Rfam assigns this 106-nucleotide RNA sequence from Jatropha curcas to the family "Plant small nucleolar RNA R71". A reference for the family is Brown et al. (2003), "Plant snoRNAs: functional evolution and new modes of gene expression", Trends Plant Sci. The family's consensus secondary structure was predicted with PFOLD. Lineage of the source: Eukaryota > Viridiplantae > Magnoliopsida > eudicotyledons > Jatropha. The family has 25 seed sequences and 278,378 matches in Rfam 15.1.

RNA sequence: AACUGUGAUGUGGGCACUUUCUUAACAAGUCCUUGAAUCUUUCCCAAGCUUCAUGCAGGCUCUCUUGAUCAUGAUGAGCAAAUGUCAUUAUCUCAUUGCGCAACUU
Numbered sequence: 001a002a003c004u005g006u007g008a009u010g011u012g013g014g015c016a017c018u019u020u021c022u023u024a025a026c027a028a029g030u031c032c033u034u035g036a037a038u039c040u041u042u043c044c045c046a047a048g049c050u051u052c053a054u055g056c057a058g059g060c061u062c063u064c065u066u067g068a069u070c071a072u073g074a075u076g077a078g079c080a081a082a083u084g085u086c087a088u089u090a091u092c093u094c095a096u097u098g099c100g101c102a103a104c105u106u
Stems, first nucleotide, its partner, number of pairs: 002105001004102002056073002059070001
Its family is annotated with RNA processing and nucleolus in the Gene Ontology.